RNA sequence: AAUUUCUACUAGGGGAGCCUGAAUGCUAGGCUGAGAGAAAAGCGAUGGAGCUUUUUGACCCUCAGGACCUGAUCUGGAUCAUGCCAGCGUAGGGAAGUAGUGUGAAUUUGUU
Numbered sequence: 001a002a003u004u005u006c007u008a009c010u011a012g013g014g015g016a017g018c019c020u021g022a023a024u025g026c027u028a029g030g031c032u033g034a035g036a037g038a039a040a041a042g043c044g045a046u047g048g049a050g051c052u053u054u055u056u057g058a059c060c061c062u063c064a065g066g067a068c069c070u071g072a073u074c075u076g077g078a079u080c081a082u083g084c085c086a087g088c089g090u091a092g093g094g095a096a097g098u099a100g101u102g103u104g105a106a107u108u109u110g111u112u
Stems, first nucleotide, its partner, number of pairs: 006100005011062004016056001017031005038055005068093004074087004
A member of the RNA family "TPP riboswitch aptamer (THI element)" from Salinibacillus xinjiangensis, 112 nucleotides long. The organism belongs to Salinibacillus, within Bacteria.